[Rfam]
RNA: Plastid-ccsA-ndhD-1 3UTR RNA
Organism: Passiflora serratifolia
RNA sequence: GCUGAGAACCUUUUGAAUCACUAUAGUGAUUCAAAAGGUUCUCACAAAU
Numbered sequence: 001g002c003u004g005a006g007a008a009c010c011u012u013u014u015g016a017a018u019c020a021c022u023a024u025a026g027u028g029a030u031u032c033a034a035a036a037g038g039u040u041c042u043c044a045c046a047a048a049u
Base pairs, nucleotide, nucleotide: 003044004043005042006041007040008039009038010037011036012035013034014033015032016031017030018029019028020027